A member of the RNA family "T-box leader" from Thomasclavelia cocleata, 203 nucleotides long. The family has 48 seed sequences and 19,395 matches in Rfam 15.1. Lineage of the source: Bacteria > Bacillati > Erysipelotrichales > Coprobacillaceae > Thomasclavelia. It is annotated as a cis-regulatory leader. Pairs were carried over by alignment from the consensus structure, which is taken from published work. Its family is annotated with tRNA binding in the Gene Ontology. Rfam's curators write: Uncharged tRNA acts as the effector for transcription antitermination of genes in the T-box leader family. T-boxes are found upstream of many aminoacyl-tRNA synthetase genes and some amino acid biosynthetic genes usually in Gram-positive bacteria.

RNA sequence: UUAAAUACAAUGAAAGAGACUGUUUAUAAUAAGAUGUUUAUAGAGAGCUGAUGGGUGGUGUGAAUCAGUAACUAUUAUUAUAAUGAAUCACUCUGGAGUAGCGCCUUGAAAUUAGUAAAGGUUGCCGUUAAUCGCGUUAAGAUUUUAAAGUGCGUAUUGUAAAAUACGAAUUAAGGUGGUACCGCGAUAUAUUCGUCCUUUUU
Numbered sequence: 001u002u003a004a005a006u007a008c009a010a011u012g013a014a015a016g017a018g019a020c021u022g023u024u025u026a027u028a029a030u031a032a033g034a035u036g037u038u039u040a041u042a043g044a045g046a047g048c049u050g051a052u053g054g055g056u057g058g059u060g061u062g063a064a065u066c067a068g069u070a071a072c073u074a075u076u077a078u079u080a081u082a083a084u085g086a087a088u089c090a091c092u093c094u095g096g097a098g099u100a101g102c103g104c105c106u107u108g109a110a111a112u113u114a115g116u117a118a119a120g121g122u123u124g125c126c127g128u129u130a131a132u133c134g135c136g137u138u139a140a141g142a143u144u145u146u147a148a149a150g151u152g153c154g155u156a157u158u159g160u161a162a163a164a165u166a167c168g169a170a171u172u173a174a175g176g177u178g179g180u181a182c183c184g185c186g187a188u189a190u191a192u193u194c195g196u197c198c199u200u201u202u203u
Base pairs, nucleotide, nucleotide: 007099008098015094016093017092018091024083025082026081027080028079036072037071038070047069048068049067050066051065052064102124103123104121105120106119107118126136127135128134153168154167155166156165157164158163173200174199175198176197184196185195186194187193